A member of the RNA family "mir-16 microRNA precursor family" from Leptobrachium leishanense, 71 nucleotides long. The source organism's lineage runs through Eukaryota, Sarcopterygii, Tetrapoda, Megophryidae and Leptobrachium. Its Rfam clan is "mir-15 clan". Its family is annotated with RISC complex and miRNA-mediated post-transcriptional gene silencing in the Gene Ontology. On this family, see Calin et al., Proc Natl Acad Sci U S A 2002: "Frequent deletions and down-regulation of micro- RNA genes miR15 and miR16 at 13q14 in chronic lymphocytic leukemia".
RNA sequence: ACCUUCCAAAGCAAGCACGAAAAUAAUGGUAAUUUUAUAAUAUCAUGAUUUUUGUGCUUGCUUUGGAAGGU
Numbered sequence: 001a002c003c004u005u006c007c008a009a010a011g012c013a014a015g016c017a018c019g020a021a022a023a024u025a026a027u028g029g030u031a032a033u034u035u036u037a038u039a040a041u042a043u044c045a046u047g048a049u050u051u052u053u054g055u056g057c058u059u060g061c062u063u064u065g066g067a068a069g070g071u
Stems, first nucleotide, its partner, number of pairs: 001071003005067003010064001011061008020051001022050003026046004